The family of this 120-nucleotide sequence from Gillisella ampelina is "Alphaproteobacterial ar14".
For this family Rfam cites "A survey of sRNA families in alpha-proteobacteria" (del Val et al., RNA Biol, 2012).
RNA sequence: UUGUUACAAGGCCGCCCACCUCCUCCCGGGCCGCUUUGUCCGACUGGCAGCACUCCUCCUCCCAAGUUGUCAGUCAUAAUCGAAAGCCCGGUGCACCUCCUCCCGCACCGGGUUUUUUCG
Numbered sequence: 001u002u003g004u005u006a007c008a009a010g011g012c013c014g015c016c017c018a019c020c021u022c023c024u025c026c027c028g029g030g031c032c033g034c035u036u037u038g039u040c041c042g043a044c045u046g047g048c049a050g051c052a053c054u055c056c057u058c059c060u061c062c063c064a065a066g067u068u069g070u071c072a073g074u075c076a077u078a079a080u081c082g083a084a085a086g087c088c089c090g091g092u093g094c095a096c097c098u099c100c101u102c103c104c105g106c107a108c109c110g111g112g113u114u115u116u117u118u119c120g
Stems, first nucleotide, its partner, number of pairs: 007038003011034002014031004042075010084115011
Lineage of the source: Bacteria > Hyphomicrobiales > Rhizobiaceae > Gillisella > Gillisella ampelina. Smr14C2 was renamed NfeR1 (Nodule Formation Efficiency RNA) highly expressed in salt stress and during the symbiotic interaction on legume roots.